[Rfam]
RNA: MIR397 microRNA precursor family
Organism: Dorcoceras hygrometricum
RNA sequence: CUAAAAAACGUCAUUGAGUGCAGCGUUGAUGACAUCCCAUCUGUUCGUAGGCGGAUUUUUUUUUUUUUUUAUCAUUUCCGAUGGAGUCUCGUCAAUGCUGCACCCAAUAACGUUUUUA
Numbered sequence: 001c002u003a004a005a006a007a008a009c010g011u012c013a014u015u016g017a018g019u020g021c022a023g024c025g026u027u028g029a030u031g032a033c034a035u036c037c038c039a040u041c042u043g044u045u046c047g048u049a050g051g052c053g054g055a056u057u058u059u060u061u062u063u064u065u066u067u068u069u070u071a072u073c074a075u076u077u078c079c080g081a082u083g084g085a086g087u088c089u090c091g092u093c094a095a096u097g098c099u100g101c102a103c104c105c106a107a108u109a110a111c112g113u114u115u116u117u118a
Stems, first nucleotide, its partner, number of pairs: 006115006013108004018103011030091003